[Rfam]
The record is a 123-nucleotide RNA sequence from Cucurbita maxima, which matches "Small nucleolar RNA snoR111" in Rfam.

RNA sequence: UUAAACGGUGCUUGAGAUCAUAUUCUCUAGCGCCGGAGAUUUGGCGAGGUAUAGCGAAGGCCGAGAUAUCGUUUCAGUCGUCAUUUGUUAUUGGUUGGCGAUUCGAUUGUUGCUCGUCCACAU
Numbered sequence: 001u002u003a004a005a006c007g008g009u010g011c012u013u014g015a016g017a018u019c020a021u022a023u024u025c026u027c028u029a030g031c032g033c034c035g036g037a038g039a040u041u042u043g044g045c046g047a048g049g050u051a052u053a054g055c056g057a058a059g060g061c062c063g064a065g066a067u068a069u070c071g072u073u074u075c076a077g078u079c080g081u082c083a084u085u086u087g088u089u090a091u092u093g094g095u096u097g098g099c100g101a102u103u104c105g106a107u108u109g110u111u112g113c114u115c116g117u118c119c120a121c122a123u
Stems, first nucleotide, its partner, number of pairs: 006035006014027004059119002062116004068107004077102007085094002

By type it is an H/ACA-box small nucleolar RNA. It scores 93 bits against the family's covariance model. The base pairs follow the family's consensus structure, which was predicted with WAR. The family has 6 seed sequences and 533 matches in Rfam 15.1.